[Rfam]
RNA: SAM riboswitch aptamer (S box leader)
RNA sequence: CUGUUAUUAAGAAUGGUGGAGGGACUGGCCCGAUGAAACCUAGCAACAGCUAACUAUCAUAAGUUAGAAUUGUGCUAAAUCCUGCAGGUAUUUACCUGAAAGAUAAGAG
Numbered sequence: 001c002u003g004u005u006a007u008u009a010a011g012a013a014u015g016g017u018g019g020a021g022g023g024a025c026u027g028g029c030c031c032g033a034u035g036a037a038a039c040c041u042a043g044c045a046a047c048a049g050c051u052a053a054c055u056a057u058c059a060u061a062a063g064u065u066a067g068a069a070u071u072g073u074g075c076u077a078a079a080u081c082c083u084g085c086a087g088g089u090a091u092u093u094a095c096c097u098g099a100a101a102g103a104u105a106a107g108a109g
Base pairs, nucleotide, nucleotide: 001109002108004106005105006104007103008102013041015040016039017038021031022030023029025084027082028081042076043075044074045073047072048071050067051066052065053064054063080101085098086097087096088095089094